Description:
The record is an 82-nucleotide RNA from Prochlorococcus marinus, which matches "Cyanobacterial ribosomal protein S1 leader" in Rfam.
RNA sequence: AUCUGUAGAGUGAUCAAUUAAUUCCGAAAGGUCGGCGGGCCACUCGGAUUUCCUUGCGCACUGCCAUAGGGCAGACCGCCAU
Numbered sequence: 001a002u003c004u005g006u007a008g009a010g011u012g013a014u015c016a017a018u019u020a021a022u023u024c025c026g027a028a029a030g031g032u033c034g035g036c037g038g039g040c041c042a043c044u045c046g047g048a049u050u051u052c053c054u055u056g057c058g059c060a061c062u063g064c065c066a067u068a069g070g071g072c073a074g075a076c077c078g079c080c081a082u
Base pairs, nucleotide, nucleotide: 024047025046026045027044030041031040032039034080035079036078037077038076061074062073063072064071065070

The sequence is in the family's curated seed alignment. cyano-S1 is a ncRNA recognized in the 5-prime region of genes encoding 30S ribosomal protein S1, it has been proposed as an cis regulation element.